A member of the RNA family "mir-7398 microRNA precursor family" from Monodelphis domestica, 61 nucleotides long. Taxonomically the source falls in Monodelphis (Eukaryota, Dipnotetrapodomorpha, Mammalia, Metatheria). The base pairs follow the family's consensus structure, which was predicted with RNAalifold. Rfam links the family to the GO terms RISC complex and miRNA-mediated post-transcriptional gene silencing. Rfam 15.1 lists 132 matches to the family in 4 species.

RNA sequence: UGUGUAGAGAUGGGAAAUAUGCUGUGUUUUCUCUUCUGGUAAAUUUCUUGCCUCUCACAGU
Numbered sequence: 001u002g003u004g005u006a007g008a009g010a011u012g013g014g015a016a017a018u019a020u021g022c023u024g025u026g027u028u029u030u031c032u033c034u035u036c037u038g039g040u041a042a043a044u045u046u047c048u049u050g051c052c053u054c055u056c057a058c059a060g061u
Base pairs, nucleotide, nucleotide: 002058003057004056006055007054008053009052011050012049013048014047015046016045017044021040022039023038